The family of this 343-nucleotide RNA from Orthopestivirus tauri is "Pestivirus internal ribosome entry site (IRES) including 5'UTR SLI".
Rfam links the family to the GO term ribosome binding.
[Rfam]
RNA sequence: GGCAAAACAUUGAAUUGAUAAGGUAGGGAACUUUCCCCUCAGCGAAGGCCGAAAAGAGGCUAGCCAUGCCCUUAGUAGGACUAGCAAAAGGAGGGGACUAGCGGUAGCAGUGAGUUCAUUGGAUGGCCGAAUCCCUGAGUACAGGGAAGUCGUCAAUGGUUCGACACUCCAUCAGUCGAGGAGUCUCGAGAUGCCAUGUGGACGAGGGCUUGCCCACGGCACAUCUUAACCUAUGCGGGGGUUGCAUAGGUGAAAGCACCAUUCAUGGUGUUAUGGACACAGCCUGAUAGGGUGUAGCAGAGACCUGCUAUUCCGCUAGUAAAAACUCUGCUGUACAUGGCAC
Numbered sequence: 001g002g003c004a005a006a007a008c009a010u011u012g013a014a015u016u017g018a019u020a021a022g023g024u025a026g027g028g029a030a031c032u033u034u035c036c037c038c039u040c041a042g043c044g045a046a047g048g049c050c051g052a053a054a055a056g057a058g059g060c061u062a063g064c065c066a067u068g069c070c071c072u073u074a075g076u077a078g079g080a081c082u083a084g085c086a087a088a089a090g091g092a093g094g095g096g097a098c099u100a101g102c103g104g105u106a107g108c109a110g111u112g113a114g115u116u117c118a119u120u121g122g123a124u125g126g127c128c129g130a131a132u133c134c135c136u137g138a139g140u141a142c143a144g145g146g147a148a149g150u151c152g153u154c155a156a157u158g159g160u161u162c163g164a165c166a167c168u169c170c171a172u173c174a175g176u177c178g179a180g181g182a183g184u185c186u187c188g189a190g191a192u193g194c195c196a197u198g199u200g201g202a203c204g205a206g207g208g209c210u211u212g213c214c215c216a217c218g219g220c221a222c223a224u225c226u227u228a229a230c231c232u233a234u235g236c237g238g239g240g241g242u243u244g245c246a247u248a249g250g251u252g253a254a255a256g257c258a259c260c261a262u263u264c265a266u267g268g269u270g271u272u273a274u275g276g277a278c279a280c281a282g283c284c285u286g287a288u289a290g291g292g293u294g295u296a297g298c299a300g301a302g303a304c305c306u307g308c309u310a311u312u313c314c315g316c317u318a319g320u321a322a323a324a325a326c327u328c329u330g331c332u333g334u335a336c337a338u339g340g341c342a343c
Base pairs, nucleotide, nucleotide: 035096036095037094038093039092040091042085043084047082048081049079050078054073055072056071058070059069060068097320098319099318100317101316102315103314104311105310106309107308108307109306110305111281112280114278115277116276117275118274119273121226122225123224124223125222126220127219128218129217132147133146134145135144136143137142150205151204152203153202154201156197157196158195159194160193161189162188163187164186166184167183168182169181170180206215207214208213229251230250231249232248233247234246235245236244237243238242256271257270258269259268260267261266282293283292284291285290295333296332297331298330299329300328301327302326

Clan: IRES1 clan. Rfam's curators write: This family represents the internal ribosome entry site (IRES) of the the pestiviruses. For this family Rfam cites "5' and 3' untranslated regions of pestivirus genome: primary and secondary structure analyses" (Deng and Brock, Nucleic Acids Res, 1993).